[Rfam]
RNA sequence: CCGGCGGGCCGGGCCCCUCUGGCGUUUCCUGUGAGACGCGAUGUCGGACCGCAUCG
Numbered sequence: 001c002c003g004g005c006g007g008g009c010c011g012g013g014c015c016c017c018u019c020u021g022g023c024g025u026u027u028c029c030u031g032u033g034a035g036a037c038g039c040g041a042u043g044u045c046g047g048a049c050c051g052c053a054u055c056g
Stems, first nucleotide, its partner, number of pairs: 006050002009047004022039007

Shown here is a 56-nucleotide RNA from Paenirhodobacter hankyongi, a member of the family "terC RNA".
The family's consensus secondary structure is taken from published work.